[Rfam]
RNA sequence: UGAGUCGGUCGGGCAGUCGCCGCCUGCAAUUUUGCAGGGGGAGGAAAGUCCGGGCUCCAUAGGGCAGAGUGCCAGGUAACCCCUGGGGGGCGUGAGCCUACGGAAAGUGCAACAGAAAGGAUACCGCCAAACAGCUUCCCGGUUGUUCGGUAAGGGUGAAAAGGUGCGGUAAGAGCGCACCGCGCGGCUGGCAACAGGCGUGGCGAUGGUAAACCCCACUCGGAGCAAGGCCAAAUAGGAAUCCAGCGCUGUGGCCCACAGUGGAUUCGGGUAGGCUGCUUGAAACCAGCGGUGACGCUGGUUCUAGAUGAAUGACUGUCCCAGACAGAACCCGGCUUACAGACCGACUCUCAUU
Numbered sequence: 001u002g003a004g005u006c007g008g009u010c011g012g013g014c015a016g017u018c019g020c021c022g023c024c025u026g027c028a029a030u031u032u033u034g035c036a037g038g039g040g041g042a043g044g045a046a047a048g049u050c051c052g053g054g055c056u057c058c059a060u061a062g063g064g065c066a067g068a069g070u071g072c073c074a075g076g077u078a079a080c081c082c083c084u085g086g087g088g089g090g091c092g093u094g095a096g097c098c099u100a101c102g103g104a105a106a107g108u109g110c111a112a113c114a115g116a117a118a119g120g121a122u123a124c125c126g127c128c129a130a131a132c133a134g135c136u137u138c139c140c141g142g143u144u145g146u147u148c149g150g151u152a153a154g155g156g157u158g159a160a161a162a163g164g165u166g167c168g169g170u171a172a173g174a175g176c177g178c179a180c181c182g183c184g185c186g187g188c189u190g191g192c193a194a195c196a197g198g199c200g201u202g203g204c205g206a207u208g209g210u211a212a213a214c215c216c217c218a219c220u221c222g223g224a225g226c227a228a229g230g231c232c233a234a235a236u237a238g239g240a241a242u243c244c245a246g247c248g249c250u251g252u253g254g255c256c257c258a259c260a261g262u263g264g265a266u267u268c269g270g271g272u273a274g275g276c277u278g279c280u281u282g283a284a285a286c287c288a289g290c291g292g293u294g295a296c297g298c299u300g301g302u303u304c305u306a307g308a309u310g311a312a313u314g315a316c317u318g319u320c321c322c323a324g325a326c327a328g329a330a331c332c333c334g335g336c337u338u339a340c341a342g343a344c345c346g347a348c349u350c351u352c353a354u355u
Base pairs, nucleotide, nucleotide: 002350003349004348005347006346007345008344009343010342011340012320013319014318015317016316017315018314020041021040023038024037025036026035027034028033046338047337048336050335051334052333053332054331055225056224057223058222062257063256064255065254067221068220069219070218071217072086073085074084075083076082087101088099089098090097091096102216103215107214108213109210110209124155125154126151127150128149130147131146132145133144134143135142136141163181164180165179166178167177168176182204183202184201185200186199188197189196190195229277230276231275232274239268240267241266242265243264244263248262249261250260251259252258284303285302286301287300288299289298290297291296
A member of the RNA family "Bacterial RNase P class A" from Litorivivens lipolytica, 355 nucleotides long. Lineage of the source: Bacteria > Pseudomonadati > Pseudomonadota > Gammaproteobacteria > Litorivivens. Ribonuclease P (RNase P) is a ubiquitous endoribonuclease, found in archaea, bacteria and eukarya as well as chloroplasts and mitochondria. Its best characterised activity is the generation of mature 5'-ends of tRNAs by cleaving the 5'-leader elements of precursor-tRNAs.